Annotation: This 181-nucleotide RNA sequence from Anabarilius grahami belongs to the Rfam family "Small nucleolar RNA SNORD97". It is annotated as a C/D-box small nucleolar RNA. A reference for the family is Vitali et al. (2003), "Identification of 13 novel human modification guide RNAs", Nucleic Acids Res. The source organism's lineage runs through Eukaryota, Deuterostomia, Vertebrata, Otophysi and Anabarilius. Gene Ontology terms of the family: RNA processing and nucleolus.
RNA sequence: GCACCCUGUGAUUAUAAAAAGACGCGUUAUUCUGAGGGACUCAACUGGAUGGUAGUUUUCUUUCUUUCUUUGUCUGAUCUGUUUCUUCCUUUCCUUUAUCUCCUCCUUAUGCUUCUCUCCUAUCCCUCAUUCUUAAACUCCUAUCCAGUCCGCUGACUGCGAUUAUGAGAUAUGAGGGUGU
Numbered sequence: 001g002c003a004c005c006c007u008g009u010g011a012u013u014a015u016a017a018a019a020a021g022a023c024g025c026g027u028u029a030u031u032c033u034g035a036g037g038g039a040c041u042c043a044a045c046u047g048g049a050u051g052g053u054a055g056u057u058u059u060c061u062u063u064c065u066u067u068c069u070u071u072g073u074c075u076g077a078u079c080u081g082u083u084u085c086u087u088c089c090u091u092u093c094c095u096u097u098a099u100c101u102c103c104u105c106c107u108u109a110u111g112c113u114u115c116u117c118u119c120c121u122a123u124c125c126c127u128c129a130u131u132c133u134u135a136a137a138c139u140c141c142u143a144u145c146c147a148g149u150c151c152g153c154u155g156a157c158u159g160c161g162a163u164u165a166u167g168a169g170a171u172a173u174g175a176g177g178g179u180g181u
Base pairs, nucleotide, nucleotide: 001181002180003179004178005177006176035095036094037093038092